Rfam assigns this 68-nucleotide RNA sequence from Cyprinus carpio to the family "Selenocysteine insertion sequence 1". On this family, see Walczak et al., RNA 1996: "A novel RNA structural motif in the selenocysteine insertion element of eukaryotic selenoprotein mRNAs". Lineage of the source: Eukaryota > Chordata > Ostariophysi > Otophysi > Cyprinus carpio. The family has 61 seed sequences and 3,793 matches in Rfam 15.1.
RNA sequence: CAUGGACUAAUGAUGGUUUGUUCAGAAACCCUUCUUGAGGAAAGAACGGACCUGAUGCAUUUGGCGUG
Numbered sequence: 001c002a003u004g005g006a007c008u009a010a011u012g013a014u015g016g017u018u019u020g021u022u023c024a025g026a027a028a029c030c031c032u033u034c035u036u037g038a039g040g041a042a043a044g045a046a047c048g049g050a051c052c053u054g055a056u057g058c059a060u061u062u063g064g065c066g067u068g
Stems, first nucleotide, its partner, number of pairs: 001068004015052009030040003